[Rfam]
RNA sequence: CACCUUUAAUCGCUGAAUCUCUAUUGAGAGCGGGGGAACCAUACCUGACAGAGUUGUUUCUGUCUUGGGGUGAAUCUUAUGUUUUUUAUAAGAAGGGAUACUCUCCAUCCCUAAUCCGACAGCUAACCUCGUAAGCGUUGAUUCGAGAGAGG
Numbered sequence: 001c002a003c004c005u006u007u008a009a010u011c012g013c014u015g016a017a018u019c020u021c022u023a024u025u026g027a028g029a030g031c032g033g034g035g036g037a038a039c040c041a042u043a044c045c046u047g048a049c050a051g052a053g054u055u056g057u058u059u060c061u062g063u064c065u066u067g068g069g070g071u072g073a074a075u076c077u078u079a080u081g082u083u084u085u086u087u088a089u090a091a092g093a094a095g096g097g098a099u100a101c102u103c104u105c106c107a108u109c110c111c112u113a114a115u116c117c118g119a120c121a122g123c124u125a126a127c128c129u130c131g132u133a134a135g136c137g138u139u140g141a142u143u144c145g146a147g148a149g150a151g152g
Base pairs, nucleotide, nucleotide: 011137012136013135014134018029019028020027030132031131032130033129034128035127040067041066068117069116070115076092077091078090079089095111096110097109098108
c-di-AMP riboswitch aptamer (ydaO/yuaA leader): a 152-nucleotide RNA from Halalkalibacterium halodurans. The organism belongs to Halalkalibacterium halodurans, within Bacteria. Its family is annotated with cyclic-di-AMP binding and regulation of gene expression in the Gene Ontology.